A member of the RNA family "RAGATH-18 RNA", 85 nucleotides long. About the family: Actinobacteria, Firmicutes, Fusobacteria, Thermotogae (1 example). The base pairs follow the family's consensus structure, which is taken from published work.
[Rfam]
RNA sequence: CUUUGGGAGCGUUAUAUCAAACGAAAGUAGUUAGCAAACGAGCGUAAGCGAGUAAGCGACAAAAUCGGACGCGAUGAACAAGGAA
Number, nucleotide and partner (000 for none) at each position: 001c083002u082003u081004u080005g079006g000007g000008a000009g072010c071011g070012u069013u068014a000015u000016a000017u000018c000019a000020a000021a000022c067023g066024a065025a000026a000027g000028u000029a000030g060031u059032u000033a000034g057035c056036a000037a000038a000039c000040g000041a000042g000043c000044g000045u000046a000047a000048g000049c000050g000051a000052g000053u000054a000055a000056g035057c034058g000059a031060c030061a000062a000063a000064a000065u024066c023067g022068g013069a012070c011071g010072c009073g000074a000075u000076g000077a000078a000079c005080a004081a003082g002083g001084a000085a000